[Rfam]
The record is a 299-nucleotide RNA from Mesorhabditis spiculigera, which matches "Metazoan signal recognition particle RNA" in Rfam. By type it is a non-coding RNA gene.
RNA sequence: GCGGGGCGUCGUGGCGGGCGCCUGUGAGCCAGCUUCUUGGUCGCAGGGUGUGGUGGACGGAGUGAGGCUGGGAUCACUGGCGGCACUCUCUCGGUCGGAGACCGGACGUCCGCGCCAAGCGAUGCGUGGCCAGGGGUUCCUUCCCGGAGGGGGAGGGGUCCCGGGCCGUUAAGGAGAUGCGUACGGCUCAGGCCCGAAAGGGAGCAGGCAAAAGCAUCCGCGCGUUGACAGUGGCCGGAUAGCGUUCGCGAGAUCGGGAAUGUCGUCAGCCUAGUCGAUACCCCCGGACCCACAUCCAU
Numbered sequence: 001g002c003g004g005g006g007c008g009u010c011g012u013g014g015c016g017g018g019c020g021c022c023u024g025u026g027a028g029c030c031a032g033c034u035u036c037u038u039g040g041u042c043g044c045a046g047g048g049u050g051u052g053g054u055g056g057a058c059g060g061a062g063u064g065a066g067g068c069u070g071g072g073a074u075c076a077c078u079g080g081c082g083g084c085a086c087u088c089u090c091u092c093g094g095u096c097g098g099a100g101a102c103c104g105g106a107c108g109u110c111c112g113c114g115c116c117a118a119g120c121g122a123u124g125c126g127u128g129g130c131c132a133g134g135g136g137u138u139c140c141u142u143c144c145c146g147g148a149g150g151g152g153g154a155g156g157g158g159u160c161c162c163g164g165g166c167c168g169u170u171a172a173g174g175a176g177a178u179g180c181g182u183a184c185g186g187c188u189c190a191g192g193c194c195c196g197a198a199a200g201g202g203a204g205c206a207g208g209c210a211a212a213a214g215c216a217u218c219c220g221c222g223c224g225u226u227g228a229c230a231g232u233g234g235c236c237g238g239a240u241a242g243c244g245u246u247c248g249c250g251a252g253a254u255c256g257g258g259a260a261u262g263u264c265g266u267c268a269g270c271c272u273a274g275u276c277g278a279u280a281c282c283c284c285c286g287g288a289c290c291c292a293c294a295u296c297c298a299u
Stems, first nucleotide, its partner, number of pairs: 001044003004023007028041003046297008058286003062282001066276007077269008087260001089258002092256005103248007110238002114235004119229001120227008128167004133162013169173001176218005186209003193202003

It scores 218 bits against the family's covariance model.